Lysine riboswitch aptamer: a 170-nucleotide sequence from Clostridium perfringens. Taxonomically the source falls in Clostridium perfringens (Bacteria, Bacillati, Bacillota, Clostridia). For this family Rfam cites "Riboswitches Control Fundamental Biochemical Pathways in Bacillus subtilis and Other Bacteria" (Mandal et al., Cell, 2003).
RNA sequence: AAAAGAGGUAGAGGCGCGAGAAUCAAGAUUACUAAAAUGGAGUUAAGUAGCGUAGAAGUUUUAGGAAAGGGAUUAUCGCCGAAGUUUUUGGCUAAUACUUUAAGGCUAAAUGCUGGGGUUGUAUAGAAUAUAUACAACACUGUCACAAAAUGUGGAGAGCUAUCAUCUUA
Number, nucleotide and partner (000 for none) at each position: 001a000002a000003a000004a000005g000006a000007g164008g163009u162010a161011g160012a000013g000014g000015c000016g079017c078018g077019a076020g000021a074022a073023u072024c071025a000026a000027g000028a000029u000030u000031a000032c064033u063034a062035a061036a060037a059038u058039g000040g000041a000042g000043u000044u000045a000046a000047g000048u000049a000050g000051c000052g000053u000054a000055g000056a000057a000058g038059u037060u036061u035062u034063a033064g032065g000066a000067a000068a000069g000070g000071g024072a023073u022074u021075a000076u019077c018078g017079c016080c000081g000082a000083a114084g113085u112086u000087u110088u109089u108090g107091g106092c105093u104094a000095a000096u000097a000098c000099u000100u000101u000102a000103a000104g093105g092106c091107u090108a089109a088110a087111u000112g085113c084114u083115g141116g140117g000118g138119u137120u136121g135122u134123a133124u132125a131126g000127a000128a000129u000130a000131u125132a124133u123134a122135c121136a120137a119138c118139a000140c116141u115142g000143u155144c154145a153146c152147a151148a000149a000150a000151u147152g146153u145154g144155g143156a000157g000158a000159g000160c011161u010162a009163u008164c007165a000166u000167c000168u000169u000170a000